[Rfam]
Rfam assigns this 119-nucleotide RNA from Acidithrix ferrooxidans to the family "Group II catalytic intron D1-D4-2".
The source organism's lineage runs through Bacteria, Bacillati, Acidimicrobiales, Acidimicrobiaceae and Acidithrix.
Its family is annotated with Group II intron splicing in the Gene Ontology.
About the family: Group II introns are found in rRNA, tRNA and mRNA of organelles in fungi, plants and protists, and also in mRNA in bacteria.
RNA sequence: GGAGGUAGGCCCUCCGGACUCGCCGAUUAGGCGGAGAGUCCAAACAACCUAGAUGUCAUCUUGGUUAAGAGCCAAGAUGGGGAGCGAUCUAGGAAAAGACCCGGAAGUACCGAGUCAUG
Number, nucleotide and partner (000 for none) at each position: 001g015002g014003a013004g012005g011006u000007a000008g000009g000010c000011c005012c004013u003014c002015c001016g041017g040018a039019c038020u037021c036022g000023c034024c033025g032026a000027u000028u000029a000030g000031g000032c025033g024034g023035a000036g021037a020038g019039u018040c017041c016042a000043a000044a000045c119046a118047a000048c093049c092050u000051a090052g089053a088054u087055g000056u080057c000058a078059u077060c076061u000062u074063g073064g072065u071066u000067a000068a000069g000070a000071g065072c064073c063074a062075a000076g060077a059078u058079g000080g056081g000082g000083a000084g000085c000086g000087a054088u053089c052090u051091a000092g049093g048094a000095a000096a000097a000098g116099a115100c114101c000102c112103g111104g000105a000106a000107g000108u000109a000110c000111c103112g102113a000114g100115u099116c098117a000118u046119g045
The match comes from Rfam's covariance-model search (83 bits). Pairs were carried over by alignment from the consensus structure.